[Rfam]
RNA: SAH (S-adenosyl-L-homocysteine) riboswitch aptamer
RNA sequence: GCUUCCAAGGAGCGUUGCGACGGCGCCCGGCUUCCCCCAGAAGCCAGCGCCGCCAGGCUUGGAAGCUCGCAACGACGCUCACCCCCU
Numbered sequence: 001g002c003u004u005c006c007a008a009g010g011a012g013c014g015u016u017g018c019g020a021c022g023g024c025g026c027c028c029g030g031c032u033u034c035c036c037c038c039a040g041a042a043g044c045c046a047g048c049g050c051c052g053c054c055a056g057g058c059u060u061g062g063a064a065g066c067u068c069g070c071a072a073c074g075a076c077g078c079u080c081a082c083c084c085c086c087u
Base pairs, nucleotide, nucleotide: 002065003064004063005062006061007060008059021052022051023050024049025048026047